[Rfam]
RNA sequence: UUUUAUCUUGUGAAAAAAUAUAGGAAAAAUCAGAUUUGAGAACUUUAUGUAGCUUCGGAAAUAAGUGGGGGAAUUCGUUUAUUUCUAUCUAAGUUACGGCUCAAGAGAAGCGAUUGCGAUUUUCGCAAUCAUAUUUUUAACCCAACAAAAGUAGUGCAAAUAAUAUGA
Numbered sequence: 001u002u003u004u005a006u007c008u009u010g011u012g013a014a015a016a017a018a019u020a021u022a023g024g025a026a027a028a029a030u031c032a033g034a035u036u037u038g039a040g041a042a043c044u045u046u047a048u049g050u051a052g053c054u055u056c057g058g059a060a061a062u063a064a065g066u067g068g069g070g071g072a073a074u075u076c077g078u079u080u081a082u083u084u085c086u087a088u089c090u091a092a093g094u095u096a097c098g099g100c101u102c103a104a105g106a107g108a109a110g111c112g113a114u115u116g117c118g119a120u121u122u123u124c125g126c127a128a129u130c131a132u133a134u135u136u137u138u139a140a141c142c143c144a145a146c147a148a149a150a151g152u153a154g155u156g157c158a159a160a161u162a163a164u165a166u167g168a
Base pairs, nucleotide, nucleotide: 002029003028004027006025007024008023009022010021011020012019036104037103038102039101040100048098049097050096051095052094053093057086058085059084060083061082062081063080064079065078066077067076068075069074110157111156112130113129114128115127116126117125118124119123133152134151135150136149137148138147